[Rfam]
RNA sequence: AUGAAUGAUGCCUCCUAGGCUUCACUUGUUACCAUUCACUGAAGUAGAAAGCCCCAAUGCUCGUGCUAAAAAAUCCUGCCGUUCAGUGUUGCAGUUUAGCCUCUUGUAUCUUUUUACAUGGCUUAUCUGUGUCAAAUCAACGACUACGUCU
Number, nucleotide and partner (000 for none) at each position: 001a000002u000003g066004a000005a064006u063007g062008a061009u000010g060011c059012c000013u000014c000015c000016u000017a000018g053019g052020c051021u050022u048023c047024a045025c044026u043027u000028g000029u000030u000031a000032c000033c000034a000035u000036u000037c000038a000039c000040u000041g000042a000043a026044g025045u024046a000047g023048a022049a000050a021051g020052c019053c018054c000055c000056a000057a000058u000059g011060c010061u008062c007063g006064u005065g000066c003067u000068a000069a000070a000071a000072a000073a000074u000075c000076c000077u000078g144079c000080c142081g141082u140083u139084c000085a000086g000087u134088g133089u000090u131091g130092c129093a128094g127095u000096u000097u000098a000099g122100c121101c120102u000103c000104u000105u000106g000107u000108a000109u000110c000111u000112u000113u000114u000115u000116a000117c000118a000119u000120g101121g100122c099123u000124u000125a000126u000127c094128u093129g092130u091131g090132u000133c088134a087135a000136a000137u000138c000139a083140a082141c081142g080143a000144c078145u000146a000147c000148g000149u000150c000151u000

Notes:
small nucleolar RNA snoR134: a 151-nucleotide sequence from Populus deltoides. Rfam links the family to the GO terms nucleolus and RNA processing. The match comes from Rfam's covariance-model search (107 bits).